[Rfam]
RNA sequence: AACACUGUAUGUGACUGGCGAAAAAAGUGGAAUGAACCACGAGGAAGCAUACAGUUGAAACGUCCGUUCGCCUGGGGAAAAGUA
Dot-bracket structure: ...(((((((((..(([[[[[.....((((......))))..))..))))))))).......(((..]]]]]..))).......

A member of the RNA family "ZMP/ZTP riboswitch aptamer (pfl RNA motif)" from Paenibacillus sp. 598K, 84 nucleotides long. Rfam links the family to the GO terms regulation of purine nucleotide biosynthetic process and one-carbon metabolic process. Pairs were carried over by alignment from the consensus structure, which is taken from published work.